[Rfam]
RNA sequence: AAGACGGUUUAUUCUAGUUAUUCCAUUUUUCAGUAGAUUUUUGCCUUUUACUAGAGUCAAUUUAACCAGUAUAAAAGGUUCAAGGAAAAAUCUAUUCA
Numbered sequence: 001a002a003g004a005c006g007g008u009u010u011a012u013u014c015u016a017g018u019u020a021u022u023c024c025a026u027u028u029u030u031c032a033g034u035a036g037a038u039u040u041u042u043g044c045c046u047u048u049u050a051c052u053a054g055a056g057u058c059a060a061u062u063u064a065a066c067c068a069g070u071a072u073a074a075a076a077g078g079u080u081c082a083a084g085g086a087a088a089a090a091u092c093u094a095u096u097c098a
Stems, first nucleotide, its partner, number of pairs: 001029004006024002008060002011057005032096010
RNA: Saccharomyces telomerase, nucleotides 709 to 806